[Rfam]
RNA sequence: UCUCCGUCACAGGUGGGGGUCGAGCAGCAAUGCUGCAUAGCGACGGUAUUGCACUUGUCCCGGCCUGUGAAGGAGGU
Dot-bracket structure: ...((...((((((.(((((..((..(((((((((........))))))))).)).))))).))))))...))....
This 77-nucleotide RNA from Merluccius polli belongs to the Rfam family "mir-92 microRNA precursor family". The family's consensus secondary structure was predicted with PFOLD. The family is grouped with related families in Rfam's "mir-92 microRNA precursor clan". The literature on the family includes a 2003 paper in Dev Cell by Houbaviy et al., "Embryonic stem cell-specific MicroRNAs". This family represents the microRNA precursor mir-92. Human miR-92 has two predicted hairpin precursor sequences: mir-92-1 on chromosome 13 and mir-92-2 on chromosome X. miR-92 has also been cloned from mouse embryonic stem cells. The mature sequence is excised from the 3' arm of the hairpin. The match comes from Rfam's covariance-model search (49 bits). The organism belongs to Merluccius, within Eukaryota.